[Rfam]
RNA sequence: CGGGAAUAAGCUUAGAAUUCCCGGCAGUUUGGCAGUGUUAAUAGCCUUUUCUUUGGCCGGAAUUGGCGGUUAGUGAAUC
Dot-bracket structure: ((((((...........))))))..............(((((.(((..((((......))))..))).)))))......
Source information
The record is a 79-nucleotide RNA sequence from Segatella maculosa, which matches "L13-Bacteroidia ribosomal protein leader" in Rfam. A reference for the family is Eckert and Weinberg (2020), "Discovery of 20 novel ribosomal leader candidates in bacteria and archaea", BMC Microbiol. It is annotated as a cis-regulatory leader. The base pairs follow the family's consensus structure, which is taken from published work.